[Rfam]
RNA sequence: GAGGUGUAGCGCGGCUGAUAGUUGAGGAACAUAUGCCCGCGCGCCUGGUCGAUGGUGUGAUAAAGCGGAUUCCAGUCGAAUUUCGAGCGCAGCCAGGAGCUGGCCUGGUUGGCGACGAACAUCUUGCCCGAAGCGAUCAUGUUCGCCCGCUG
Numbered sequence: 001g002a003g004g005u006g007u008a009g010c011g012c013g014g015c016u017g018a019u020a021g022u023u024g025a026g027g028a029a030c031a032u033a034u035g036c037c038c039g040c041g042c043g044c045c046u047g048g049u050c051g052a053u054g055g056u057g058u059g060a061u062a063a064a065g066c067g068g069a070u071u072c073c074a075g076u077c078g079a080a081u082u083u084c085g086a087g088c089g090c091a092g093c094c095a096g097g098a099g100c101u102g103g104c105c106u107g108g109u110u111g112g113c114g115a116c117g118a119a120c121a122u123c124u125u126g127c128c129c130g131a132a133g134c135g136a137u138c139a140u141g142u143u144c145g146c147c148c149g150c151u152g
Base pairs, nucleotide, nucleotide: 001034003032005031006030007029010026012024013023014022037055038054039053040051041050064151065150066149067148069081070080071079072078087146088145089144091143092142093141096138100133101132103129105126107124108123109118110117111116
Overview:
This 152-nucleotide RNA sequence from Pseudogemmobacter humi belongs to the Rfam family "Ruegeria cis2 sRNA". On this family, see Rivers et al., Front Microbiol 2016: "Experimental Identification of Small Non-Coding RNAs in the Model Marine Bacterium Ruegeria pomeroyi DSS-3". The match comes from Rfam's covariance-model search (57 bits). Its family is annotated with regulation of gene expression in the Gene Ontology. The base pairs follow the family's consensus structure, which was predicted with RNAfold. The source organism's lineage runs through Bacteria, Pseudomonadota, Alphaproteobacteria, Rhodobacterales and Pseudogemmobacter.